[Rfam]
RNA sequence: CUCUAGCCCCGAUAGCAGCGGUAUCCUUUUUUGCUUUUUCGGCAAAAAAGAUACAAGUGAAUAGCGGGACAAAAC
Numbered sequence: 001c002u003c004u005a006g007c008c009c010c011g012a013u014a015g016c017a018g019c020g021g022u023a024u025c026c027u028u029u030u031u032u033g034c035u036u037u038u039u040c041g042g043c044a045a046a047a048a049a050g051a052u053a054c055a056a057g058u059g060a061a062u063a064g065c066g067g068g069a070c071a072a073a074a075c
Stems, first nucleotide, its partner, number of pairs: 009067003013063002018058002023052003028048008

A member of the RNA family "Flavo-1 RNA" from Flavobacterium bizetiae, 75 nucleotides long.
Lineage of the source: Bacteria > Bacteroidota > Flavobacteriia > Flavobacteriaceae > Flavobacterium.